[Rfam]
RNA sequence: CUCGGAGAUCGCGGGCGAAGGCUUCGCCAACCUGGUCAGGGCCGGAAGGCAGCAGCCACAACGAAUUCCCCUUCGGGUCGCGGUCUCCACCUCC
Numbered sequence: 001c002u003c004g005g006a007g008a009u010c011g012c013g014g015g016c017g018a019a020g021g022c023u024u025c026g027c028c029a030a031c032c033u034g035g036u037c038a039g040g041g042c043c044g045g046a047a048g049g050c051a052g053c054a055g056c057c058a059c060a061a062c063g064a065a066u067u068c069c070c071c072u073u074c075g076g077g078u079c080g081c082g083g084u085c086u087c088c089a090c091c092u093c094c
Stems, first nucleotide, its partner, number of pairs: 004088010016075006023065004033058004041050003